Rfam assigns this 300-nucleotide RNA from Acipenser ruthenus to the family "Metazoan signal recognition particle RNA". A search with the family's covariance model found it, with a score of 259 bits. A reference for the family is Rosenblad et al. (2009), "Kinship in the SRP RNA family", RNA Biol. Taxonomically the source falls in Acipenser (Eukaryota, Eumetazoa, Deuterostomia, Gnathostomata).

RNA sequence: GCCGGGCGCGGUGGCGUGCGCCUGUAAUCCACGCUGCUCGGGAGGCUGAGGCUGGCGGAUCGCUUGAGCUCGGGAGCGCUGGGCUGCAGUGAGCUGUGCCGAUCCGGUGUCCGCACUAAGAGCGGUAUCGACAUGGUGCUCUCGGGGGAGCCCGGGUCCUCCAGGUCGCAUAAAGAGGGGUGAACCGGCCCAGGUCGGGAACGGAGCAGGUCAAAGCCCCCGUGCCGCUCAGUAGUGGGAUUGCGCCGGUGAAUAGACACUGCAGCCCAGCCUGGGCAACAUAGCGAAACACAGUCUUCU
Number, nucleotide and partner (000 for none) at each position: 001g046002c045003c044004g023005g022006g021007c020008g019009c018010g017011g000012u000013g000014g000015c000016g000017u010018g009019c008020g007021c006022c005023u004024g000025u000026a000027a000028u043029c042030c041031a000032c000033g000034c000035u000036g000037c000038u000039c000040g000041g030042g029043a028044g003045g002046c001047u000048g298049a297050g296051g295052c294053u293054g292055g000056c000057g000058g000059a000060u287061c286062g285063c284064u283065u000066g000067a000068g277069c276070u275071c274072g273073g272074g271075a000076g000077c000078g000079c270080u269081g268082g267083g266084c265085u264086g263087c262088a261089g260090u259091g258092a000093g000094c256095u255096g254097u253098g000099c251100c000101g000102a000103u000104c249105c248106g247107g246108u245109g244110u243111c239112c238113g000114c237115a236116c235117u234118a233119a000120g230121a229122g228123c227124g226125g225126u224127a223128u222129c168130g167131a166132c165133a000134u163135g162136g161137u000138g159139c000140u000141c156142u155143c154144g153145g152146g151147g000148g000149a000150g000151c146152c145153c144154g143155g142156g141157u000158c000159c138160u000161c136162c135163a134164g000165g132166u131167c130168g129169c175170a000171u000172a000173a000174a000175g169176a000177g220178g219179g218180g217181u216182g000183a000184a000185c000186c000187g212188g211189c210190c209191c000192a000193g000194g000195u204196c203197g202198g000199g000200a000201a000202c197203g196204g195205a000206g000207c000208a000209g190210g189211u188212c187213a000214a000215a000216g181217c180218c179219c178220c177221c000222g128223u127224g126225c125226c124227g123228c122229u121230c120231a000232g000233u118234a117235g116236u115237g114238g112239g111240a000241u000242u000243g110244c109245g108246c107247c106248g105249g104250u000251g099252a000253a097254u096255a095256g094257a000258c091259a090260c089261u088262g087263c086264a085265g084266c083267c082268c081269a080270g079271c074272c073273u072274g071275g070276g069277c068278a000279a000280c000281a000282u000283a064284g063285c062286g061287a060288a000289a000290c000291a000292c054293a053294g052295u051296c050297u049298u048299c000300u000